RNA: Nuclear RNase P
Organism: Rotaria sp. Silwood1
RNA sequence: GUGGGUUGAAGCUUACUUACAGGGAUUACAUACGAGUGCAAUUUAAUGUCACUCUUUAAUAUUUAUCCUUGGGAAGGUCUGAGAUAAAGACCAAUCGAGACUCUAGCAGGGUUCCAUGCGUUUAACGUAUGGCAGGUGAUCAGAAAGCUUCCGGUGUGAAGUUACUUUUCUCUAUGGUUAUAUUCGAGUACAAGAUCAACUUAUGUUGAGAUGCUCUUAUCAUAGAGAAAGUUGUGAAAGCCUGUGGUCAGCAACAUGAAGUUCAAUGAGUAAGAUGAUCAUUCUUCUAUGAUCAGAACUCAAUUCAGACUACUCUCAACCUAC
Numbered sequence: 001g002u003g004g005g006u007u008g009a010a011g012c013u014u015a016c017u018u019a020c021a022g023g024g025a026u027u028a029c030a031u032a033c034g035a036g037u038g039c040a041a042u043u044u045a046a047u048g049u050c051a052c053u054c055u056u057u058a059a060u061a062u063u064u065a066u067c068c069u070u071g072g073g074a075a076g077g078u079c080u081g082a083g084a085u086a087a088a089g090a091c092c093a094a095u096c097g098a099g100a101c102u103c104u105a106g107c108a109g110g111g112u113u114c115c116a117u118g119c120g121u122u123u124a125a126c127g128u129a130u131g132g133c134a135g136g137u138g139a140u141c142a143g144a145a146a147g148c149u150u151c152c153g154g155u156g157u158g159a160a161g162u163u164a165c166u167u168u169u170c171u172c173u174a175u176g177g178u179u180a181u182a183u184u185c186g187a188g189u190a191c192a193a194g195a196u197c198a199a200c201u202u203a204u205g206u207u208g209a210g211a212u213g214c215u216c217u218u219a220u221c222a223u224a225g226a227g228a229a230a231g232u233u234g235u236g237a238a239a240g241c242c243u244g245u246g247g248u249c250a251g252c253a254a255c256a257u258g259a260a261g262u263u264c265a266a267u268g269a270g271u272a273a274g275a276u277g278a279u280c281a282u283u284c285u286u287c288u289a290u291g292a293u294c295a296g297a298a299c300u301c302a303a304u305u306c307a308g309a310c311u312a313c314u315c316u317c318a319a320c321c322u323a324c
Stems, first nucleotide, its partner, number of pairs: 001324004007318003012274007021070005034054005039048001079308005089249004099113005115131006132245006148231003276295006